[Rfam]
RNA sequence: GGGCUGUGAUGACUAGUUUCAUUUCUCGAUACUGAUCUAAAGUUGUUUUUUUUACGGAUCAAGAAAAGGCAACGAUUUAAGAUUGAUGACCGCGUUUGUGCGUGUCUGAGCCUG
Numbered sequence: 001g002g003g004c005u006g007u008g009a010u011g012a013c014u015a016g017u018u019u020c021a022u023u024u025c026u027c028g029a030u031a032c033u034g035a036u037c038u039a040a041a042g043u044u045g046u047u048u049u050u051u052u053u054a055c056g057g058a059u060c061a062a063g064a065a066a067a068g069g070c071a072a073c074g075a076u077u078u079a080a081g082a083u084u085g086a087u088g089a090c091c092g093c094g095u096u097u098g099u100g101c102g103u104g105u106c107u108g109a110g111c112c113u114g
Stems, first nucleotide, its partner, number of pairs: 001113004
RNA: small nucleolar RNA snoR126